[Rfam]
The record is a 90-nucleotide sequence from Enterococcus hermanniensis, which matches "Trans-activating crRNA" in Rfam. Rfam describes the family as follows. RNA-guided Streptococcus pyogenes Cas9 (SpCas9) is a sequence-specific DNA endonuclease, the Trans-activating CRISPR RNA form an hybrid with the crRNA (crRNA/tracrRNA). The RNA hybrid acts as a guide for the endonuclease Cas9. It is annotated as a CRISPR RNA.
RNA sequence: UUUCAGAAGCAUUUAAUUCAACAUAGCGAGUUAAAAUAAGGCUUAGUCCGUAAUCAACUUUUCAAGUGGCGCUGUUUCGGCGCUUUUUUU
Numbered sequence: 001u002u003u004c005a006g007a008a009g010c011a012u013u014u015a016a017u018u019c020a021a022c023a024u025a026g027c028g029a030g031u032u033a034a035a036a037u038a039a040g041g042c043u044u045a046g047u048c049c050g051u052a053a054u055c056a057a058c059u060u061u062u063c064a065a066g067u068g069g070c071g072c073u074g075u076u077u078c079g080g081c082g083c084u085u086u087u088u089u090u
Stems, first nucleotide, its partner, number of pairs: 001036003005032001011024002014021001040049002057067001059065002069083006
Pairs were carried over by alignment from the consensus structure.
Taxonomically the source falls in Enterococcus (Bacteria, Bacillati, Bacilli, Enterococcaceae).